[Rfam]
RNA sequence: CAGGUACAACAGACGAUUGCUCCAAAAUCAGGAGAGGAAAGUCCGAGCUACUGAGACAAGAUUCCAUUUAACAAAUGGCUAGCGUAAGCUAAGGGAAAGUGCAACAGAAAUAAAACCGCCUUUUUUAGGUAAGGGUGAAAUGGUGAGGUAAGAGCUUACCGGGAUUUAAGUAAUUAAAUUUGUCCGUGCAAACCCAAUCUGUAGCAAAAAGAGUAUGGUUAAUGUCUCAUUUUAACUCUUUGCUUGAGAUAUAUUGCGAAAUAUGUCCCAGAUAAAUAAUCGUCCUAGACAGAACUCGGCUUAUCGUUGUGCCUGAUUU
Dot-bracket structure: ((((((((((((((((((.((((.......))))....[[[.[[[[[((((...[...((((((((((.....)))))(((((....)))).)((...(((((............((((((.....))))..)).......((((((.......))))))(((((((((....))))))))..)..)))..)))))))))))))...((((..(......(((...].)))...)..))))......((((((((....))))))))..........)))))))..........]]]]]]]].).))))))))))....